Background: Group II catalytic intron D1-D4-6: a 226-nucleotide RNA. Group II introns are found in rRNA, tRNA and mRNA of organelles in fungi, plants and protists, and also in mRNA in bacteria.

[Rfam]
RNA sequence: AGAGUUUCGUACGGUGAAGGUGUAGCGAGCCACAUCGGCCCUGAGUCAUGCGCCGUCGCCCGUGAGGGCGGGGGCGAAGCGUUGACAGGGGAACGUGCGGGCCGGGUAUCCAGCCGCGAAAUUUUGGGAUCACUCCGCGGUGCCGACGCCGUGGCUACAGGCGGAAGGCCACACCGGUCGCGUCGCCAGCGCGAGACGCGAACGGACCCCGCGCGGUCUGAGGCCC
Numbered sequence: 001a002g003a004g005u006u007u008c009g010u011a012c013g014g015u016g017a018a019g020g021u022g023u024a025g026c027g028a029g030c031c032a033c034a035u036c037g038g039c040c041c042u043g044a045g046u047c048a049u050g051c052g053c054c055g056u057c058g059c060c061c062g063u064g065a066g067g068g069c070g071g072g073g074g075c076g077a078a079g080c081g082u083u084g085a086c087a088g089g090g091g092a093a094c095g096u097g098c099g100g101g102c103c104g105g106g107u108a109u110c111c112a113g114c115c116g117c118g119a120a121a122u123u124u125u126g127g128g129a130u131c132a133c134u135c136c137g138c139g140g141u142g143c144c145g146a147c148g149c150c151g152u153g154g155c156u157a158c159a160g161g162c163g164g165a166a167g168g169c170c171a172c173a174c175c176g177g178u179c180g181c182g183u184c185g186c187c188a189g190c191g192c193g194a195g196a197c198g199c200g201a202a203c204g205g206a207c208c209c210c211g212c213g214c215g216g217u218c219u220g221a222g223g224c225c226c
Stems, first nucleotide, its partner, number of pairs: 012037005019031003023194001025192002039091004045086004049081002051076004056071006110220001113217006136211002139208003142169003147163004174205003178201007